[Rfam]
RNA sequence: GUACGUUCAUCGCAUUCGCCUACCAGGACAAGUUACCAGUAGUGAAUGACGACGCAGGCAACCUACUCAUGGAACGGGGGGUAGGU
Numbered sequence: 001g002u003a004c005g006u007u008c009a010u011c012g013c014a015u016u017c018g019c020c021u022a023c024c025a026g027g028a029c030a031a032g033u034u035a036c037c038a039g040u041a042g043u044g045a046a047u048g049a050c051g052a053c054g055c056a057g058g059c060a061a062c063c064u065a066c067u068c069a070u071g072g073a074a075c076g077g078g079g080g081g082u083a084g085g086u
Stems, first nucleotide, its partner, number of pairs: 004076005010052003013048007061086006067079002
RNA: Glutamine-II riboswitch aptamer